Shown here is a 149-nucleotide sequence from Callorhinus ursinus, a member of the family "U4 spliceosomal RNA".
Rfam's curators write: U4 small nuclear RNA (U4 snRNA) is a component of the major U2-dependent spliceosome.
By type it is a spliceosomal small nuclear RNA.
RNA sequence: AGCUUUGCGCAGUGGCAGUAUCGUAGCCAAUGAGGUUUAUCCGAGGCCUGAUUAUUGCUAAUUGAAAACUUUUCCCAAUAAAUAAAUAAAAUUUAAAAAAAAAAAAGGCUUUUCAUAUUACUUUACAUUUUAGGUAUUUUUCCCCAAAU
Numbered sequence: 001a002g003c004u005u006u007g008c009g010c011a012g013u014g015g016c017a018g019u020a021u022c023g024u025a026g027c028c029a030a031u032g033a034g035g036u037u038u039a040u041c042c043g044a045g046g047c048c049u050g051a052u053u054a055u056u057g058c059u060a061a062u063u064g065a066a067a068a069c070u071u072u073u074c075c076c077a078a079u080a081a082a083u084a085a086a087u088a089a090a091a092u093u094u095a096a097a098a099a100a101a102a103a104a105a106a107g108g109c110u111u112u113u114c115a116u117a118u119u120a121c122u123u124u125a126c127a128u129u130u131u132a133g134g135u136a137u138u139u140u141u142c143c144c145c146a147a148a149u
Base pairs, nucleotide, nucleotide: 020052021051022050023049026047027046028045034042035041083125084124085123087120088119089118091116092115095112096111097110139148140147141146
Dot-bracket structure: ...................((((..(((.....((.....))..))).))))..............................(((.(((.((..(((............)))..)).)))..))).............(((....))).

Lineage of the source: Eukaryota > Gnathostomata > Euteleostomi > Carnivora > Callorhinus.
The family has 177 seed sequences and 32,178 matches in Rfam 15.1.